RNA: Singlet oxygen resistance RNA X
RNA sequence: UCCCACCGCGAGGACGGCGAUUGAGUUUCUCUUGCUCUCCUCAUACCUCCCUGUUGGACUUGGGCCGAGCUUCUGCUCGGCCUUUUUU
Number, nucleotide and partner (000 for none) at each position: 001u000002c000003c000004c000005a000006c000007c000008g044009c000010g042011a041012g040013g039014a038015c000016g000017g000018c000019g000020a000021u000022u000023g000024a000025g000026u000027u000028u000029c000030u000031c000032u000033u000034g000035c000036u000037c000038u014039c013040c012041u011042c010043a000044u008045a000046c000047c000048u000049c000050c000051c000052u000053g000054u000055u000056g000057g000058a000059c000060u000061u000062g000063g082064g081065c080066c079067g078068a077069g076070c075071u000072u000073c000074u000075g070076c069077u068078c067079g066080g065081c064082c063083u000084u000085u000086u000087u000088u000